RNA sequence: CGCAGUGGACGACCUCGGCGUGCUUUUUCCCAACUCAGGGACGGCCCUG
Numbered sequence: 001c002g003c004a005g006u007g008g009a010c011g012a013c014c015u016c017g018g019c020g021u022g023c024u025u026u027u028u029c030c031c032a033a034c035u036c037a038g039g040g041a042c043g044g045c046c047c048u049g
Stems, first nucleotide, its partner, number of pairs: 001020003005016001007014002036049005

Rfam assigns this 49-nucleotide RNA from Prosthecobacter gellanilyticus to the family "Guanidine-II riboswitch aptamer (mini-ykkC)". A search with the family's covariance model found it, with a score of 35 bits. Lineage of the source: Bacteria > Verrucomicrobiota > Verrucomicrobiia > Verrucomicrobiaceae > Prosthecobacter. From the family's description: Simpler in structure and has fewer highly conserved nucleotide positions than the ykkC-yxkD leader. Despite this each of its two stem-loop structures directly bind free guanidine. Therefore, mini-ykkC RNA motif represents a distinct class of guanidine-sensing RNAs. Its crystal structure was also determined.